[Rfam]
RNA sequence: CAAACCAGCACCUCGUAUGGGGCUCGUCCGAGUCCGUCCUAUGACGGCCGGAUACAUGAGCCCGCGAUGACCUGGACGGGACUGGAGGUUCUUCAUG
Numbered sequence: 001c002a003a004a005c006c007a008g009c010a011c012c013u014c015g016u017a018u019g020g021g022g023c024u025c026g027u028c029c030g031a032g033u034c035c036g037u038c039c040u041a042u043g044a045c046g047g048c049c050g051g052a053u054a055c056a057u058g059a060g061c062c063c064g065c066g067a068u069g070a071c072c073u074g075g076a077c078g079g080g081a082c083u084g085g086a087g088g089u090u091c092u093u094c095a096u097g
Stems, first nucleotide, its partner, number of pairs: 014066003020063006026053003034047004
This 97-nucleotide RNA belongs to the Rfam family "malK-III RNA". Rfam classes the family as a cis-regulatory element. The base pairs follow the family's consensus structure, which is taken from published work.